RNA sequence: CCGACUGCGCUGAACUCCAGUUCCGGGCGAGUUUCUGGGAAACCAGACUCAUUCGGGGAGAAACUGGACUGUCUGGCAGCAGGCGAA
Numbered sequence: 001c002c003g004a005c006u007g008c009g010c011u012g013a014a015c016u017c018c019a020g021u022u023c024c025g026g027g028c029g030a031g032u033u034u035c036u037g038g039g040a041a042a043c044c045a046g047a048c049u050c051a052u053u054c055g056g057g058g059a060g061a062a063a064c065u066g067g068a069c070u071g072u073c074u075g076g077c078a079g080c081a082g083g084c085g086a087a
Stems, first nucleotide, its partner, number of pairs: 002085001005082004010076003014072002016068006022059003027052001029050003034047005
Shown here is an 87-nucleotide RNA from Cnephaeus nilssonii, a member of the family "mir-9230 microRNA precursor family".
Rfam 15.1 lists 859 matches to the family in 7 species.
Pairs were carried over by alignment from the consensus structure, which was predicted with RNAalifold.
A search with the family's covariance model found it, with a score of 105 bits.